[Rfam]
RNA sequence: GGGUGCUUGAGGCUAUCUGCUUCAGGCUAUCUGCUUCAGGCAUGAACACCAAAAGGCAGAUAGAGAAAAGCCCCAGUUAACAUUACGCGUCCGGCAAGACGCUUAACAUUAAUCUGAGGCCAAUUUCAUGCUUUGCACAUGUAGGUUAGCCUCUUACAUGCCGAAAGGCAAGGAGAAGCAGGCUAUGAAG
Numbered sequence: 001g002g003g004u005g006c007u008u009g010a011g012g013c014u015a016u017c018u019g020c021u022u023c024a025g026g027c028u029a030u031c032u033g034c035u036u037c038a039g040g041c042a043u044g045a046a047c048a049c050c051a052a053a054a055g056g057c058a059g060a061u062a063g064a065g066a067a068a069a070g071c072c073c074c075a076g077u078u079a080a081c082a083u084u085a086c087g088c089g090u091c092c093g094g095c096a097a098g099a100c101g102c103u104u105a106a107c108a109u110u111a112a113u114c115u116g117a118g119g120c121c122a123a124u125u126u127c128a129u130g131c132u133u134u135g136c137a138c139a140u141g142u143a144g145g146u147u148a149g150c151c152u153c154u155u156a157c158a159u160g161c162c163g164a165a166a167g168g169c170a171a172g173g174a175g176a177a178g179c180a181g182g183c184u185a186u187g188a189a190g
Base pairs, nucleotide, nucleotide: 001074002073003072005071006070007069008068013063014062015061016060017059018058019057020056021055022054026050075115076114098110099109116153117152118151119150120149123146124145125144126143127141128140129139130138157182159180161178

sok antitoxin (CssrC): a 190-nucleotide RNA sequence from Shigella boydii. Taxonomically the source falls in Shigella boydii (Bacteria, Gammaproteobacteria, Enterobacterales, Enterobacteriaceae). By type it is an antitoxin RNA. Rfam describes the family as follows. Also identified in Shigella as CssrC.